RNA sequence: GGGUGACUCCUUGGCGCUUGCGCGCUGUUUUGAUGAAGAUUCGCACCUCUAUCAAAAUGGGUAACCCCACCUCUUGGCAAGGCCUUACUAUCAGAUCAAGUCUGAACUUCUACACCUAAGGUGUAAGAUCUCUCGGCAGGUUGAAUUCCAAAGUGAGCGAGGACGAAUCCAGGGUCGAUUGAUGUAUGCUUAGCAUCACUCCACUCUAUAUUCUACGAGAUAUGCGCCGGAAUAACCGAAAUUACCUUUUUCACACUGGCG
Numbered sequence: 001g002g003g004u005g006a007c008u009c010c011u012u013g014g015c016g017c018u019u020g021c022g023c024g025c026u027g028u029u030u031u032g033a034u035g036a037a038g039a040u041u042c043g044c045a046c047c048u049c050u051a052u053c054a055a056a057a058u059g060g061g062u063a064a065c066c067c068c069a070c071c072u073c074u075u076g077g078c079a080a081g082g083c084c085u086u087a088c089u090a091u092c093a094g095a096u097c098a099a100g101u102c103u104g105a106a107c108u109u110c111u112a113c114a115c116c117u118a119a120g121g122u123g124u125a126a127g128a129u130c131u132c133u134c135g136g137c138a139g140g141u142u143g144a145a146u147u148c149c150a151a152a153g154u155g156a157g158c159g160a161g162g163a164c165g166a167a168u169c170c171a172g173g174g175u176c177g178a179u180u181g182a183u184g185u186a187u188g189c190u191u192a193g194c195a196u197c198a199c200u201c202c203a204c205u206c207u208a209u210a211u212u213c214u215a216c217g218a219g220a221u222a223u224g225c226g227c228c229g230g231a232a233u234a235a236c237c238g239a240a241a242u243u244a245c246c247u248u249u250u251u252c253a254c255a256c257u258g259g260c261g
Stems, first nucleotide, its partner, number of pairs: 001067004006062002009060002014025004027058009037048002075208003081201002085198001091106001092104005110193003114190001226260005
RNA: Proteobacterial sRNA psRNA2
Organism: Burkholderia plantarii